[Rfam]
TPP riboswitch aptamer (THI element): a 101-nucleotide RNA sequence from Rhodobacteraceae bacterium THAF1. The match comes from Rfam's covariance-model search (71 bits). Gene Ontology term of the family: thiamine pyrophosphate binding. The family's consensus secondary structure is taken from published work.
RNA sequence: CGCAUCACCUCGGGGCGCCCAAGCUGGGCUGAGACGCGUGAUGCGGACCCGUUGAACCUGAACCGGUUAGAACCGGCGGAGGGAAGGUACAUGGCCCAAGC
Dot-bracket structure: ......((((((((.((((((...)))))......(((...))))..)))).....(((...((((......))))...)))..)))).............
Numbered sequence: 001c002g003c004a005u006c007a008c009c010u011c012g013g014g015g016c017g018c019c020c021a022a023g024c025u026g027g028g029c030u031g032a033g034a035c036g037c038g039u040g041a042u043g044c045g046g047a048c049c050c051g052u053u054g055a056a057c058c059u060g061a062a063c064c065g066g067u068u069a070g071a072a073c074c075g076g077c078g079g080a081g082g083g084a085a086g087g088u089a090c091a092u093g094g095c096c097c098a099a100g101c
Stems, first nucleotide, its partner, number of pairs: 007088004011051004016045001017029005036044003057082003063076004